[Rfam]
RNA sequence: GGACGGGACUCUGGAGAGACUCUUAUACAGGGCGCCGAAGGUGAAACACAGCAAUCAUAUUGCUGACAAAUCUCUCAGGCAAAAGGACAGAGACAAAUUC
Numbered sequence: 001g002g003a004c005g006g007g008a009c010u011c012u013g014g015a016g017a018g019a020c021u022c023u024u025a026u027a028c029a030g031g032g033c034g035c036c037g038a039a040g041g042u043g044a045a046a047c048a049c050a051g052c053a054a055u056c057a058u059a060u061u062g063c064u065g066a067c068a069a070a071u072c073u074c075u076c077a078g079g080c081a082a083a084a085g086g087a088c089a090g091a092g093a094c095a096a097a098u099u100c
Base pairs, nucleotide, nucleotide: 007094009092010091011090012089013088020032021031022030023029034080035079036078037076038075041074043072
The family of this 100-nucleotide RNA sequence from Pelosinus fermentans is "Glycine riboswitch aptamer". The pairing is the family consensus, mapped onto this sequence. It scores 58 bits against the family's covariance model. Rfam links the family to the GO term glycine biosynthetic process.